[Rfam]
This 195-nucleotide RNA belongs to the Rfam family "manA RNA". Rfam's curators write: manA RNA has been located in 5'UTR regions of genes of mannose or fructose metabolism. Has been proposed as a cis-regulatory element and as a riboswitch candidate for his complex secondary structure. The sequence is in the family's curated seed alignment. By type it is a cis-regulatory element.

RNA sequence: UGUGCCUGAUCAGCACAUCGGGAGUGACUGAAUAAACUUACUGGCAUAUAGCUGGUUAAGGUGAUGCGACAGGGGUGGUGCCCGCUGCUGGGAACAGUAGAAUCGAAAACCAAUCGGGUCGUAGGCAAAGGUGUAUUUCUAAACUGUAGAAAUGCCCGCCUUUUGUUGGUACACAGGAAUCCAACCUCCCUCUUU
Numbered sequence: 001u002g003u004g005c006c007u008g009a010u011c012a013g014c015a016c017a018u019c020g021g022g023a024g025u026g027a028c029u030g031a032a033u034a035a036a037c038u039u040a041c042u043g044g045c046a047u048a049u050a051g052c053u054g055g056u057u058a059a060g061g062u063g064a065u066g067c068g069a070c071a072g073g074g075g076u077g078g079u080g081c082c083c084g085c086u087g088c089u090g091g092g093a094a095c096a097g098u099a100g101a102a103u104c105g106a107a108a109a110c111c112a113a114u115c116g117g118g119u120c121g122u123a124g125g126c127a128a129a130g131g132u133g134u135a136u137u138u139c140u141a142a143a144c145u146g147u148a149g150a151a152a153u154g155c156c157c158g159c160c161u162u163u164u165g166u167u168g169g170u171a172c173a174c175a176g177g178a179a180u181c182c183a184a185c186c187u188c189c190c191u192c193u194u195u
Base pairs, nucleotide, nucleotide: 001017002016003015004014005013020190021189022188023187024186027062028061040056041055042054043053044052045051065123066122067121068120069119070118072083073082074081076112077111078110079109085100086099087098088097089096090095103117104116105115106114127163128162129161130160131159132158133157136152137151138150139149144176145175146174147173165185166184167183168182169181